[Rfam]
RNA sequence: AGAAAAAAGCAGAAGCACCCGCUUCUCGCCUGACAGACAAAAGCCUGUGGGCCGAUGAACGAUAAUAUAGUUUUGCUGUGCGGGUAGCUUUGGUCGAAGCUACCCGUUUUCUGCUAC
Numbered sequence: 001a002g003a004a005a006a007a008a009g010c011a012g013a014a015g016c017a018c019c020c021g022c023u024u025c026u027c028g029c030c031u032g033a034c035a036g037a038c039a040a041a042a043g044c045c046u047g048u049g050g051g052c053c054g055a056u057g058a059a060c061g062a063u064a065a066u067a068u069a070g071u072u073u074u075g076c077u078g079u080g081c082g083g084g085u086a087g088c089u090u091u092g093g094u095c096g097a098a099g100c101u102a103c104c105c106g107u108u109u110u111c112u113g114c115u116a117c
Stems, first nucleotide, its partner, number of pairs: 011026006028052003034047003038043001083104009

The family of this 117-nucleotide sequence from Liquorilactobacillus vini is "Ribosomal protein L20 leader". The family's RNA type in Rfam is cis-regulatory leader. Rfam's curators write: This family is a putative r-protein leader autoregulatory structure found in B. subtilis and other low-GC Gram-positive bacteria. It is located in the 5' untranslated regions of mRNAs encoding initiation factor 3 followed by ribosomal proteins L35 and L20 (infC-rpmI-rplT). A Rho-independent transcription terminator structure that is probably involved in regulation is included at the 3' end. Rfam links the family to the GO term regulation of gene expression. NCBI's taxonomy places the organism under Bacteria, Bacillati, Bacillota, Lactobacillales, Liquorilactobacillus vini. Pairs were carried over by alignment from the consensus structure, which was predicted with CMfinder.